[Rfam]
RNA: Small nucleolar RNA SNORD121A
Organism: Coregonus sp. 'balchen'
RNA sequence: AAUAUGGAGAUAAUGAUGGUUACAAGCACAUAUCUGAUUCUUAUGUGGAAUACCUCAAUGACUGAAUCUCCUAUU
Numbered sequence: 001a002a003u004a005u006g007g008a009g010a011u012a013a014u015g016a017u018g019g020u021u022a023c024a025a026g027c028a029c030a031u032a033u034c035u036g037a038u039u040c041u042u043a044u045g046u047g048g049a050a051u052a053c054c055u056c057a058a059u060g061a062c063u064g065a066a067u068c069u070c071c072u073a074u075u
Base pairs, nucleotide, nucleotide: 001075002074003073004072006071008069009068010067011066